RNA sequence: ACCUUCCUUGUCUGGGGGUGGAUUGGGAUGUUCAAUGAACGGAUAGUGAGAACAGCCCUGCUAACACCUGACCAACACUUCUAGCAUCACCUGAACUACCCAGUUCGGGCUAUGGUGCAAUUUUUGGAACC
Numbered sequence: 001a002c003c004u005u006c007c008u009u010g011u012c013u014g015g016g017g018g019u020g021g022a023u024u025g026g027g028a029u030g031u032u033c034a035a036u037g038a039a040c041g042g043a044u045a046g047u048g049a050g051a052a053c054a055g056c057c058c059u060g061c062u063a064a065c066a067c068c069u070g071a072c073c074a075a076c077a078c079u080u081c082u083a084g085c086a087u088c089a090c091c092u093g094a095a096c097u098a099c100c101c102a103g104u105u106c107g108g109g110c111u112a113u114g115g116u117g118c119a120a121u122u123u124u125u126g127g128a129a130c131c
Stems, first nucleotide, its partner, number of pairs: 006018004021061001023060001025058001027056001029054005039047002084118006090109008
Dot-bracket structure: .....((((.....))))..(.(.(.(.(((((.....((.....))..))))).).).))......................((((((((((((((....))))))))...)))))).............
A member of the RNA family "U4atac minor spliceosomal RNA" from Anabarilius grahami, 131 nucleotides long. U4atac is an essential component of the minor U12-type spliceosome complex which is required for removal of the rarer class of eukaryotic introns (AT-AC, U12-type). The family has 61 seed sequences and 1,648 matches in Rfam 15.1. Clan: U4 clan.